[Rfam]
RNA sequence: UAGUCACGGUGAAGAUGCCGUGUACCCGCAACGGGACGGAAAGACCCCAUGAACCUUUACUGCAGCUUAGCAUUGGUAUCGGGUAAACGAUGUGUAGGAUAGGCGGGAGGCUUUGAGACUGUGUCGCCAGGCAUGGUGGAGCCGCUGUUGAAAUACCGCCCUUUGUUUGCCUGGUAUCUAACCCGCCUUUGGCGGGGACAUUGCUUGGUGGGUAGUUUGACUGGGGUGGUCGCCUCCAAAAGGAUAACGGAGGCUUCCAAAGGUUCCCUCAGCACGCUUGGUAACCGUGCGCGGAGUGCAAUAGCAUAAGGGGGCUUGACUGUGAGGCCGACAAGCCGAGCAGGGUGGAAACACGGGUAUAGUGAUCCGGCGGUACUGCAUGGAAAGGCCGUCGCUCAAAGGAUAAAAGGUACUCUGGGGAUAACAGGCUGAUCUCCCCCAAGAGCUCAUAUCGACGGGGAGGUUUGGCACCUCGAUGUCGGCUCGUCACAUCCUGGGGCUGGAGAAGGUCCCAAGGGUUGGGCUGUUCGCCCAUUAAAGUGGCACGCGAGCUGGGUUCAGAACGUCGUGAGACAGUUCGGUCCCUAUCUGUUGCGGGCG
Numbered sequence: 001u002a003g004u005c006a007c008g009g010u011g012a013a014g015a016u017g018c019c020g021u022g023u024a025c026c027c028g029c030a031a032c033g034g035g036a037c038g039g040a041a042a043g044a045c046c047c048c049a050u051g052a053a054c055c056u057u058u059a060c061u062g063c064a065g066c067u068u069a070g071c072a073u074u075g076g077u078a079u080c081g082g083g084u085a086a087a088c089g090a091u092g093u094g095u096a097g098g099a100u101a102g103g104c105g106g107g108a109g110g111c112u113u114u115g116a117g118a119c120u121g122u123g124u125c126g127c128c129a130g131g132c133a134u135g136g137u138g139g140a141g142c143c144g145c146u147g148u149u150g151a152a153a154u155a156c157c158g159c160c161c162u163u164u165g166u167u168u169g170c171c172u173g174g175u176a177u178c179u180a181a182c183c184c185g186c187c188u189u190u191g192g193c194g195g196g197g198a199c200a201u202u203g204c205u206u207g208g209u210g211g212g213u214a215g216u217u218u219g220a221c222u223g224g225g226g227u228g229g230u231c232g233c234c235u236c237c238a239a240a241a242g243g244a245u246a247a248c249g250g251a252g253g254c255u256u257c258c259a260a261a262g263g264u265u266c267c268c269u270c271a272g273c274a275c276g277c278u279u280g281g282u283a284a285c286c287g288u289g290c291g292c293g294g295a296g297u298g299c300a301a302u303a304g305c306a307u308a309a310g311g312g313g314g315c316u317u318g319a320c321u322g323u324g325a326g327g328c329c330g331a332c333a334a335g336c337c338g339a340g341c342a343g344g345g346u347g348g349a350a351a352c353a354c355g356g357g358u359a360u361a362g363u364g365a366u367c368c369g370g371c372g373g374u375a376c377u378g379c380a381u382g383g384a385a386a387g388g389c390c391g392u393c394g395c396u397c398a399a400a401g402g403a404u405a406a407a408a409g410g411u412a413c414u415c416u417g418g419g420g421a422u423a424a425c426a427g428g429c430u431g432a433u434c435u436c437c438c439c440c441a442a443g444a445g446c447u448c449a450u451a452u453c454g455a456c457g458g459g460g461a462g463g464u465u466u467g468g469c470a471c472c473u474c475g476a477u478g479u480c481g482g483c484u485c486g487u488c489a490c491a492u493c494c495u496g497g498g499g500c501u502g503g504a505g506a507a508g509g510u511c512c513c514a515a516g517g518g519u520u521g522g523g524c525u526g527u528u529c530g531c532c533c534a535u536u537a538a539a540g541u542g543g544c545a546c547g548c549g550a551g552c553u554g555g556g557u558u559c560a561g562a563a564c565g566u567c568g569u570g571a572g573a574c575a576g577u578u579c580g581g582u583c584c585c586u587a588u589c590u591g592u593u594g595c596g597g598g599c600g
Stems, first nucleotide, its partner, number of pairs: 005022005025598008034590003038585002046419004051415002053411005059216004066208002069205004075178016092161001102160005109143003118137008182196003186192001219231004232254006255400001257357002263315006269295002272290005296305002320343004326337003345354003368394007376387002428469003432466001433463007443453002480555001481553004485547001486544005493518002496513006520534005561579004565574003
The record is a 600-nucleotide part of an RNA from Cecembia lonarensis, which matches "Bacterial large subunit ribosomal RNA" in Rfam.
Taxonomically the source falls in Cecembia lonarensis (Bacteria, Bacteroidota, Cytophagia, Cecembia).
Pairs were carried over by alignment from the consensus structure, which is taken from published work.